Shown here is a 152-nucleotide sequence from Terrimesophilobacter mesophilus, a member of the family "FMN riboswitch aptamer (RFN element)".
The match comes from Rfam's covariance-model search (75 bits).
NCBI's taxonomy places the organism under Bacteria, Bacillati, Actinomycetota, Micrococcales, Terrimesophilobacter.
Rfam describes the family as follows. The RFN element is a highly conserved domain that is found frequently in the 5'-untranslated regions of prokaryotic mRNAs that encode for flavin mononucleotide (FMN) biosynthesis and transport proteins.
RNA sequence: UACGUGCUCCGGGGUCGGUGAAAGUCCGAACCGGCGGUGAUAGUCCGCGACCCGCGAUCGGCUGAGGCCGAGAGCGGUUGAGCCGGUGGAAUUCCGGGACCGACGGUUAUGAACCACUGGUGGUUCUCAGUCCGGAUGAAAGGCAGCACGGG
Numbered sequence: 001u002a003c004g005u006g007c008u009c010c011g012g013g014g015u016c017g018g019u020g021a022a023a024g025u026c027c028g029a030a031c032c033g034g035c036g037g038u039g040a041u042a043g044u045c046c047g048c049g050a051c052c053c054g055c056g057a058u059c060g061g062c063u064g065a066g067g068c069c070g071a072g073a074g075c076g077g078u079u080g081a082g083c084c085g086g087u088g089g090a091a092u093u094c095c096g097g098g099a100c101c102g103a104c105g106g107u108u109a110u111g112a113a114c115c116a117c118u119g120g121u122g123g124u125u126c127u128c129a130g131u132c133c134g135g136a137u138g139a140a141a142g143g144c145a146g147c148a149c150g151g152g
Base pairs, nucleotide, nucleotide: 003150004149005148006147007146008145009143010142016028017027018026032102033101034048035047036046037045043100044099052077053076054075055074083097084096085095086094104134105133106132